Annotation: A member of the RNA family "RprA RNA" from Pantoea sp. M_5, 108 nucleotides long. Translational regulation of the stationary phase sigma factor RpoS is mediated by the formation of a double-stranded RNA stem-loop structure in the upstream region of the rpoS messenger RNA, occluding the translation initiation site.
RNA sequence: AUGUUCGAAAUCAACUUACUGAUUUCCAGACAACCUUAUUCCCCUGAGUAGAGUAAAGAAUUGCUGUGUGUAGUCUUUGCCCAUCCCCUGUGAUGGGCUUUUUUUUUG
Numbered sequence: 001a002u003g004u005u006c007g008a009a010a011u012c013a014a015c016u017u018a019c020u021g022a023u024u025u026c027c028a029g030a031c032a033a034c035c036u037u038a039u040u041c042c043c044c045u046g047a048g049u050a051g052a053g054u055a056a057a058g059a060a061u062u063g064c065u066g067u068g069u070g071u072a073g074u075c076u077u078u079g080c081c082c083a084u085c086c087c088c089u090g091u092g093a094u095g096g097g098c099u100u101u102u103u104u105u106u107u108g
Stems, first nucleotide, its partner, number of pairs: 003019002031046002062070003079098007
Dot-bracket structure: ..((.............))...........((............))...............(((...)))........(((((((......)))))))..........
Notes:
By type it is a small RNA.